[Rfam]
Source information
The family of this 133-nucleotide RNA sequence from Salvia splendens is "mir-393 microRNA precursor family". The source organism's lineage runs through Eukaryota, Euphyllophyta, Gunneridae, Salvia subgen. Calosphace and core Calosphace. It scores 61 bits against the family's covariance model. The literature on the family includes a 2012 paper in J Plant Physiol by Kruszka et al., "Role of microRNAs and other sRNAs of plants in their changing environments". Rfam links the family to the GO terms miRNA-mediated post-transcriptional gene silencing and RISC complex.
RNA sequence: AAAGGAUGAAUCCAAAGAGAUAGCAUGAUCCAAAAUGUAUGAAUUCCAAUUAAAUAUAUAAAGAAGAUGGUAGUGAAGAAAAGGAAUAGGGAAAUAGAGUUGGGAUCAAUGCGAUCCCUUUGGACGCCUCCUU
Dot-bracket structure: .(((((.(..(((((((.(((.(((((((((...(................................................................)..)))))).))).))).)))))))..).)))))